MIR480 microRNA precursor family: a 102-nucleotide RNA from Populus alba.
Its family is annotated with RISC complex and miRNA-mediated post-transcriptional gene silencing in the Gene Ontology.
For this family Rfam cites "Novel and mechanical stress-responsive MicroRNAs in Populus trichocarpa that are absent from Arabidopsis" (Lu et al., Plant Cell, 2005).
RNA sequence: UAAUAUGUUUGAGAAAGAUUUUUAUUUAGUUAUGGCAGAAUCAUACUUAAUUACUCGGAAUCACUUACUACUAUGUGAACAAUGUAUUUUUGAGAUUUUAAU
Number, nucleotide and partner (000 for none) at each position: 001u000002a000003a000004u100005a099006u000007g097008u095009u094010u000011g000012a091013g000014a089015a088016a000017g000018a085019u084020u000021u000022u000023u000024a000025u000026u000027u082028a000029g080030u079031u078032a000033u000034g000035g000036c000037a000038g000039a000040a000041u000042c000043a000044u000045a000046c000047u000048u000049a000050a000051u000052u000053a000054c000055u000056c000057g000058g000059a000060a000061u000062c000063a000064c000065u000066u000067a000068c000069u000070a000071c000072u000073a000074u000075g000076u000077g000078a031079a030080c029081a000082a027083u000084g019085u018086a000087u000088u015089u014090u000091u012092g000093a000094g009095a008096u000097u007098u000099u005100a004101a000102u000